[Rfam]
RNA sequence: CGUCAGCACGCUUGAACUUUGUUUUUCCUGUGCGUUGUACUAGGUGAGCAAAGAUUCAGGUGUGUUGACAA
Numbered sequence: 001c002g003u004c005a006g007c008a009c010g011c012u013u014g015a016a017c018u019u020u021g022u023u024u025u026u027c028c029u030g031u032g033c034g035u036u037g038u039a040c041u042a043g044g045u046g047a048g049c050a051a052a053g054a055u056u057c058a059g060g061u062g063u064g065u066u067g068a069c070a071a
Stems, first nucleotide, its partner, number of pairs: 002069006009062007017053004022048003027044003
Source information: The family of this 71-nucleotide RNA from Zophobas morio is "mir-87 microRNA precursor family". Gene Ontology terms of the family: miRNA-mediated post-transcriptional gene silencing and RISC complex. The family's consensus secondary structure was predicted with RNAalifold. Taxonomically the source falls in Zophobas (Eukaryota, Protostomia, Mandibulata, Cucujiformia).